[Rfam]
RNA sequence: GAGUCUAACGUCUAUGCGAGUGUUUGGGUGGAUAAAACCCCAGCGCGGAAUGAAAGUAAGAGGUUGGAGCCCGCAUGGGCGCACAAUCGACCGACCCAGAAGUUUACGGACGGGUUUGAGUAGGAGCAUAGCUGUUGGGACCCGAAAGAUGGUGAACUAUACCUGGAUAGGGUGAAGCCAGAGGAAACUCUGGUGGAGGCUCGUAGCGGUUCUGACGUGCAAAUCGAUCGUCGAAUCUGGGUAUAGGGGCGAAAGACUAAUCGAACCAUCUAGUAGCUGGUU
Number, nucleotide and partner (000 for none) at each position: 001g000002a000003g000004u000005c138006u137007a136008a135009c134010g133011u000012c131013u130014a129015u128016g127017c126018g000019a000020g046021u045022g044023u000024u000025u000026g040027g039028g038029u037030g000031g000032a000033u000034a000035a000036a000037a029038c028039c027040c026041c000042a000043g000044c022045g021046c020047g000048g000049a000050a057051u056052g000053a000054a000055a000056g051057u050058a000059a000060g000061a000062g088063g087064u086065u085066g084067g000068a000069g080070c079071c078072c000073g000074c000075a000076u000077g000078g071079g070080c069081g000082c000083a000084c066085a065086a064087u063088c062089g000090a121091c120092c118093g117094a116095c114096c113097c112098a000099g000100a000101a000102g107103u000104u000105u000106a000107c102108g000109g000110a000111c000112g097113g096114g095115u000116u094117u093118g092119a000120g091121u090122a000123g000124g000125a000126g017127c016128a015129u014130a013131g012132c000133u010134g009135u008136u007137g006138g005139g000140a000141c280142c279143c000144g277145a000146a000147a000148g270149a269150u268151g267152g266153u265154g000155a000156a000157c246158u245159a244160u243161a242162c241163c240164u239165g238166g237167a236168u234169a000170g202171g201172g200173u199174g000175a000176a000177g194178c193179c192180a191181g190182a189183g188184g000185a000186a000187a000188c183189u182190c181191u180192g179193g178194u177195g000196g000197a000198g000199g173200c172201u171202c170203g000204u000205a000206g231207c230208g229209g228210u000211u227212c226213u000214g225215a224216c000217g000218u000219g000220c000221a000222a000223a000224u215225c214226g212227a211228u209229c208230g207231u206232c000233g000234a168235a000236u167237c166238u165239g164240g163241g162242u161243a160244u159245a158246g157247g000248g258249g257250c000251g000252a000253a000254a000255g000256a000257c249258u248259a000260a000261u000262c000263g000264a000265a153266c152267c151268a150269u149270c148271u000272a000273g000274u000275a000276g000277c144278u000279g142280g141281u000282u000
Rfam assigns this 282-nucleotide part of an RNA from Sungouiella intermedia to the family "Eukaryotic large subunit ribosomal RNA". Lineage of the source: Eukaryota > Fungi > Dikarya > Serinales > Sungouiella. The family's consensus secondary structure is taken from published work. A search with the family's covariance model found it, with a score of 3284 bits.